[Rfam]
RNA sequence: GGCACCUUUAAGACUAACAGAAGUAUUGGAGCAUAGGCUUUCGUGGGUUAACCCAAUACUUCUGUUAGUCUUAAAGGUGCC
Numbered sequence: 001g002g003c004a005c006c007u008u009u010a011a012g013a014c015u016a017a018c019a020g021a022a023g024u025a026u027u028g029g030a031g032c033a034u035a036g037g038c039u040u041u042c043g044u045g046g047g048u049u050a051a052c053c054c055a056a057u058a059c060u061u062c063u064g065u066u067a068g069u070c071u072u073a074a075a076g077g078u079g080c081c
Base pairs, nucleotide, nucleotide: 001081002080003079005077006076007075011071012070013069014068015067016066017065018064020061022060023059024058025057026056027055028054029053
Annotation: A member of the RNA family "mir-16 microRNA precursor family" from Terrapene triunguis, 81 nucleotides long. Clan: mir-15 clan. Gene Ontology terms of the family: RISC complex and miRNA-mediated post-transcriptional gene silencing. The literature on the family includes a 2002 paper in Proc Natl Acad Sci U S A by Calin et al., "Frequent deletions and down-regulation of micro- RNA genes miR15 and miR16 at 13q14 in chronic lymphocytic leukemia". Lineage of the source: Eukaryota > Gnathostomata > Euteleostomi > Sarcopterygii > Terrapene. Pairs were carried over by alignment from the consensus structure, which was predicted with PFOLD.